[Rfam]
RNA: Guanidine-I riboswitch aptamer
RNA sequence: GUGGGGCGCACCUAGGGUUCCGCUCCGGAGGCCGGAGGCUGGUCCGAGAGGUGCAGGCGGUCGCCGGAGGGCGGCCGUUCCACGGCGGGAGAAAAGCCCGGGAGAC
Numbered sequence: 001g002u003g004g005g006g007c008g009c010a011c012c013u014a015g016g017g018u019u020c021c022g023c024u025c026c027g028g029a030g031g032c033c034g035g036a037g038g039c040u041g042g043u044c045c046g047a048g049a050g051g052u053g054c055a056g057g058c059g060g061u062c063g064c065c066g067g068a069g070g071g072c073g074g075c076c077g078u079u080c081c082a083c084g085g086c087g088g089g090a091g092a093a094a095a096g097c098c099c100g101g102g103a104g105a106c
Stems, first nucleotide, its partner, number of pairs: 008054005015045002020042002022039001023037006056079008081101001083104001087099003